[Rfam]
RNA sequence: AUCUUUGCGCUUGGGGCAAUGACGCAGCUAAUGAGGUAAUAACCGAGGCGCGUCAAUUGCUGGUUGAAAACUAUUUCCAAACCCCCUCCUCGGCCUUGGGUCUCCCAGGGCUGUCGAGAAGAUCCAACUCCAGU
Numbered sequence: 001a002u003c004u005u006u007g008c009g010c011u012u013g014g015g016g017c018a019a020u021g022a023c024g025c026a027g028c029u030a031a032u033g034a035g036g037u038a039a040u041a042a043c044c045g046a047g048g049c050g051c052g053u054c055a056a057u058u059g060c061u062g063g064u065u066g067a068a069a070a071c072u073a074u075u076u077c078c079a080a081a082c083c084c085c086c087u088c089c090u091c092g093g094c095c096u097u098g099g100g101u102c103u104c105c106c107a108g109g110g111c112u113g114u115c116g117a118g119a120a121g122a123u124c125c126a127a128c129u130c131c132a133g134u
Stems, first nucleotide, its partner, number of pairs: 021054005027049003035044003086118003091113007098105002127134002
Shown here is a 134-nucleotide RNA from Papaver somniferum, a member of the family "U4 spliceosomal RNA". Rfam links the family to the GO terms U4 snRNP and spliceosomal tri-snRNP complex assembly. The organism belongs to Papaver, within Eukaryota. The base pairs follow the family's consensus structure, which is taken from published work. The match comes from Rfam's covariance-model search (88 bits).